[Rfam]
RNA sequence: AAACAAGGUAGAGGCGCGGCUGCGAAAAGUACCUGUACACGGGAUUACCUGUCCGAUGGUGUACAGCGAAAGGCAAUGCCGCCGAAGGGCUGUUUCCGGUAAAUUCAGCUCUGGCUGCAUAUUCAAUAGGUAUGCAGUUGUCAUCAUGGUUUGAUGGAGAGCUAUCGGCAUA
Numbered sequence: 001a002a003a004c005a006a007g008g009u010a011g012a013g014g015c016g017c018g019g020c021u022g023c024g025a026a027a028a029g030u031a032c033c034u035g036u037a038c039a040c041g042g043g044a045u046u047a048c049c050u051g052u053c054c055g056a057u058g059g060u061g062u063a064c065a066g067c068g069a070a071a072g073g074c075a076a077u078g079c080c081g082c083c084g085a086a087g088g089g090c091u092g093u094u095u096c097c098g099g100u101a102a103a104u105u106c107a108g109c110u111c112u113g114g115c116u117g118c119a120u121a122u123u124c125a126a127u128a129g130g131u132a133u134g135c136a137g138u139u140g141u142c143a144u145c146a147u148g149g150u151u152u153g154a155u156g157g158a159g160a161g162c163u164a165u166c167g168g169c170a171u172a
Base pairs, nucleotide, nucleotide: 007166008165009164010163011162016082017081018080019079020078024074033066034065035064036063037062038061039060086112087111088110089109090108091107092106095103113139114138115137116136117135118134119133120132121131122130123129141157142156143155144154145153146152
The family of this 172-nucleotide sequence from Ruminococcus flavefaciens is "Lysine riboswitch aptamer". Its family is annotated with lysine biosynthetic process in the Gene Ontology. Riboswitches are metabolite binding domains within certain messenger RNAs that serve as precision sensors for their corresponding targets. Allosteric rearrangement of mRNA structure is mediated by ligand binding, and this results in modulation of gene expression. This family includes riboswitches that sense lysine in a number of genes involved in lysine metabolism, including lysC.